[Rfam]
Nucleotides: 238
Base pairs, nucleotide, nucleotide: 010237011236012235013234014233017230018229019228020227023223024222025221026220027219028218029217030215031214034211035210038180039179040178041177042175043174044173045172046171047170048169049168050166051165052164053163054162055160056159058089059088060087061086062085063084064083065081066080067079068078069077070076094155095154097152098151105144106143110138111137112136113135114134115133116132117131118130119129120128121127122126182208183207184206185205186204187203188202189201190199191198
Number, partner (000 for none) and nucleotide at each position: 001000g002000u003000g004000a005000a006000a007000u008000g009000a010237u011236g012235a013234u014233u015000c016000a017230g018229u019228u020227u021000a022000u023223c024222c025221a026220u027219u028218c029217g030215c031214u032000g033000a034211g035210u036000g037000u038180g039179c040178u041177g042175c043174g044173c045172u046171a047170g048169c049168c050166u051165u052164c053163u054162u055160c056159c057000a058089g059088g060087c061086c062085u063084c064083a065081g066080u067079u068078c069077c070076u071000g072000u073000u074000c075000u076070a077069g078068g079067a080066a081065c082000u083064u084063g085062g086061g087060g088059c089058u090000g091000u092000g093000c094155a095154g096000c097152c098151u099000c100000c101000a102000g103000a104000u105144a106143c107000a108000c109000u110138g111137u112136a113135g114134u115133c116132u117131g118130c119129a120128a121127u122126g123000u124000u125000c126122u127121a128120u129119u130118g131117u132116g133115g134114a135113u136112u137111g138110c139000u140000u141000g142000u143106g144105u145000g146000c147000u148000g149000g150000u151098a152097g153000a154095c155094u156000a157000g158000u159056g160055g161000u162054a163053a164052g165051a166050a167000c168049g169048g170047c171046u172045g173044g174043u175042g176000u177041c178040a179039g180038c181000a182208g183207g184206g185205a186204u187203g188202g189201g190199u191198c192000c193000c194000u195000u196000u197000g198191g199190a200000u201189u202188c203187c204186a205185u206184c207183u208182u209000a210035a211034c212000c213000a214031a215030g216000a217029u218028g219027a220026g221025u222024g223023g224000u225000g226000c227020a228019a229018a230017u231000c232000u233014g234013a235012u236011c237010a238000c

Shown here is a 238-nucleotide RNA from Jaculus jaculus, a member of the family "Small nucleolar RNA SNORD17".
Gene Ontology terms of the family: nucleolus and RNA processing.
Rfam describes the family as follows. The snoRNA HBI-43 belongs to the C/D family of snoRNAs, guiding 2'O-ribose methylation at position U3797 of the 28S rRNA. Pseudouridylation in position U3797 is predicted to be guided by the H/ACA snoRNA ACA48.
It scores 224 bits against the family's covariance model.
The organism belongs to Jaculus, within Eukaryota.
The family's consensus secondary structure was predicted with RNAalifold.